Rfam assigns this 315-nucleotide RNA sequence from Ictidomys tridecemlineatus to the family "7SK RNA". It is annotated as a non-coding RNA gene. It scores 275 bits against the family's covariance model. The family's consensus secondary structure is taken from published work.
RNA sequence: GGAUGUGAAGGCGAUCUGGCUGCGACAUCUGUCACCCCAUUGAUCGCCAGGGUUGAUUCGGCUGAUCUGGCUGGCUAGGCGGGUGUCCCCUUCCUCCCUCACAGCUCCAUGUGCGUCCCUCCCGAAGCUGCGCGCUCGGUCGAAGAGGACGACCUUCCCCGAUAGAGGAGGACCGGUCUUCGGUCAAGGGUAUACGAGUAGCUGCGCUCCCCUGCUAGAACCUCCAAACAAGCUCUCAAGGUUCUUAAUUCUACUUGAGGUUAACAACCACAAAUAGAUAAAAUUAGUUUUUAUUAUGAUAAAUUUAAAAAAAAA
Numbered sequence: 001g002g003a004u005g006u007g008a009a010g011g012c013g014a015u016c017u018g019g020c021u022g023c024g025a026c027a028u029c030u031g032u033c034a035c036c037c038c039a040u041u042g043a044u045c046g047c048c049a050g051g052g053u054u055g056a057u058u059c060g061g062c063u064g065a066u067c068u069g070g071c072u073g074g075c076u077a078g079g080c081g082g083g084u085g086u087c088c089c090c091u092u093c094c095u096c097c098c099u100c101a102c103a104g105c106u107c108c109a110u111g112u113g114c115g116u117c118c119c120u121c122c123c124g125a126a127g128c129u130g131c132g133c134g135c136u137c138g139g140u141c142g143a144a145g146a147g148g149a150c151g152a153c154c155u156u157c158c159c160c161g162a163u164a165g166a167g168g169a170g171g172a173c174c175g176g177u178c179u180u181c182g183g184u185c186a187a188g189g190g191u192a193u194a195c196g197a198g199u200a201g202c203u204g205c206g207c208u209c210c211c212c213u214g215c216u217a218g219a220a221c222c223u224c225c226a227a228a229c230a231a232g233c234u235c236u237c238a239a240g241g242u243u244c245u246u247a248a249u250u251c252u253a254c255u256u257g258a259g260g261u262u263a264a265c266a267a268c269c270a271c272a273a274a275u276a277g278a279u280a281a282a283a284u285u286a287g288u289u290u291u292u293a294u295u296a297u298g299a300u301a302a303a304u305u306u307a308a309a310a311a312a313a314a315a
Stems, first nucleotide, its partner, number of pairs: 001108003005102004010097002013093002018090002024087010035074002037070003042067004046062003116171002118168004122139004127135002140162003147158003201265001203263001207259002211257001214254001223248001288315002291308002293304003